[Rfam]
RNA: hya RNA
RNA sequence: AGCACCGCGCAAGUGGGCCGAAGGUCGACUCCUGCGGCGCAGGGGUUGUACCCCGGCCCCGGAAAGCUGUGA
Numbered sequence: 001a002g003c004a005c006c007g008c009g010c011a012a013g014u015g016g017g018c019c020g021a022a023g024g025u026c027g028a029c030u031c032c033u034g035c036g037g038c039g040c041a042g043g044g045g046u047u048g049u050a051c052c053c054c055g056g057c058c059c060c061g062g063a064a065a066g067c068u069g070u071g072a
Base pairs, nucleotide, nucleotide: 003039005037006036007035008034042060043059044058045057046056047055
Dot-bracket structure: ..(.((((.........................)))).)..((((((.......))))))............